[Rfam]
The family of this 74-nucleotide RNA from Rhizosphaericola mali is "Fluoride riboswitch aptamer (crcB RNA motif)". The family's consensus secondary structure is taken from published work. The organism belongs to Rhizosphaericola, within Bacteria.

RNA sequence: UGCAAUAUAGGAAAUGGUGUCUUCCUACUCCGAACCGCAGUUGUGAUUACAAUGCUGAUGGCGCCUACAAAAUU
Numbered sequence: 001u002g003c004a005a006u007a008u009a010g011g012a013a014a015u016g017g018u019g020u021c022u023u024c025c026u027a028c029u030c031c032g033a034a035c036c037g038c039a040g041u042u043g044u045g046a047u048u049a050c051a052a053u054g055c056u057g058a059u060g061g062c063g064c065c066u067a068c069a070a071a072a073u074u
Stems, first nucleotide, its partner, number of pairs: 010025004016065006037055003